The record is a 118-nucleotide RNA from Halobacillus salinus, which matches "ylbH leader" in Rfam. Rfam classes the family as a cis-regulatory leader. On this family, see Barrick et al., Proc Natl Acad Sci U S A 2004: "New RNA motifs suggest an expanded scope for riboswitches in bacterial genetic control". NCBI's taxonomy places the organism under Bacteria, Bacillati, Bacillota, Caryophanales, Halobacillus. About the family: This family is a putative regulatory RNA structure that is found upstream of the ylbH gene in B. subtilis and related low GC Gram-positive bacteria.
RNA sequence: AAAAAAAAUAGGGCUGUCCAUAUAGACAGCCCUUCUUUUCUAUCCUCAUACAGAGCAUAAAAAAGUAAAGGGAGAGGAGAAACCGGAGGGCUUAUGGGGAAGUAAGCCUUCUCCGUUU
Numbered sequence: 001a002a003a004a005a006a007a008a009u010a011g012g013g014c015u016g017u018c019c020a021u022a023u024a025g026a027c028a029g030c031c032c033u034u035c036u037u038u039u040c041u042a043u044c045c046u047c048a049u050a051c052a053g054a055g056c057a058u059a060a061a062a063a064a065g066u067a068a069a070g071g072g073a074g075a076g077g078a079g080a081a082a083c084c085g086g087a088g089g090g091c092u093u094a095u096g097g098g099g100a101a102g103u104a105a106g107c108c109u110u111c112u113c114c115g116u117u118u
Stems, first nucleotide, its partner, number of pairs: 011032008033072005042058002045055003084115004089111001090107005